Shown here is a 90-nucleotide RNA from Drosophila gunungcola, a member of the family "mir-289 microRNA precursor family".
On this family, see Clark et al., Nature 2007: "Evolution of genes and genomes on the Drosophila phylogeny".
The match comes from Rfam's covariance-model search (93 bits).
Taxonomically the source falls in elegans subgroup (in: flies) (Eukaryota, Ecdysozoa, Endopterygota, Aparaglossata).
RNA sequence: AGUUUACAGUAAAAUAAAUAUUUGAGUGGAGCCCGCGCGACUCCUUUCCGACUGGGGUAAGUCACUUGAGCGUUUGUUGGCACGUAAAAG
Numbered sequence: 001a002g003u004u005u006a007c008a009g010u011a012a013a014a015u016a017a018a019u020a021u022u023u024g025a026g027u028g029g030a031g032c033c034c035g036c037g038c039g040a041c042u043c044c045u046u047u048c049c050g051a052c053u054g055g056g057g058u059a060a061g062u063c064a065c066u067u068g069a070g071c072g073u074u075u076g077u078u079g080g081c082a083c084g085u086a087a088a089a090g
Stems, first nucleotide, its partner, number of pairs: 003088005009083002013078007021070009031058004039046002